[Rfam]
RNA sequence: CAUGUUUAUUCGCUUAAUCCCCGUGAUGACGGGGAGCGGAGGAACCAUUAAAGACGGGGCGGUGAUGCCUCUUGGGGUGAAUCAGCAAAUCCUGCUGACGGGCGACUCUUGCGUCCGAAUCCGACAGCUAACUUCGUAAGCGUUGAAGAGACGUUCA
Numbered sequence: 001c002a003u004g005u006u007u008a009u010u011c012g013c014u015u016a017a018u019c020c021c022c023g024u025g026a027u028g029a030c031g032g033g034g035a036g037c038g039g040a041g042g043a044a045c046c047a048u049u050a051a052a053g054a055c056g057g058g059g060c061g062g063u064g065a066u067g068c069c070u071c072u073u074g075g076g077g078u079g080a081a082u083c084a085g086c087a088a089a090u091c092c093u094g095c096u097g098a099c100g101g102g103c104g105a106c107u108c109u110u111g112c113g114u115c116c117g118a119a120u121c122c123g124a125c126a127g128c129u130a131a132c133u134u135c136g137u138a139a140g141c142g143u144u145g146a147a148g149a150g151a152c153g154u155u156c157a
Base pairs, nucleotide, nucleotide: 011142012141013140014139018035019034020033021032022031023030024029036137037136038135039134040133041132046074047073075122076121077120083097084096085095086094100116101115102114103113
This 157-nucleotide sequence from Alteribacter lacisalsi belongs to the Rfam family "c-di-AMP riboswitch aptamer (ydaO/yuaA leader)". Taxonomically the source falls in Alteribacter (Bacteria, Bacillati, Bacilli, Caryophanales).